[Rfam]
The family of this 102-nucleotide RNA sequence from Paenibacillus solani is "Purine riboswitch aptamer".
RNA sequence: UUAAUGAAAUUAAAUACUUCUCGUAUAAAGCCGGGGAUAUGGCCCGGAAGUCUCUACCCGGAAACCGUAAAUUUUCGGACUACGAGGGAAUACAAACGGUGC
Numbered sequence: 001u002u003a004a005u006g007a008a009a010u011u012a013a014a015u016a017c018u019u020c021u022c023g024u025a026u027a028a029a030g031c032c033g034g035g036g037a038u039a040u041g042g043c044c045c046g047g048a049a050g051u052c053u054c055u056a057c058c059c060g061g062a063a064a065c066c067g068u069a070a071a072u073u074u075u076c077g078g079a080c081u082a083c084g085a086g087g088g089a090a091u092a093c094a095a096a097c098g099g100u101g102c
Stems, first nucleotide, its partner, number of pairs: 018088008031047005058078007
Overview: Riboswitches are metabolite binding domains within certain messenger RNAs that serve as precision sensors for their corresponding targets.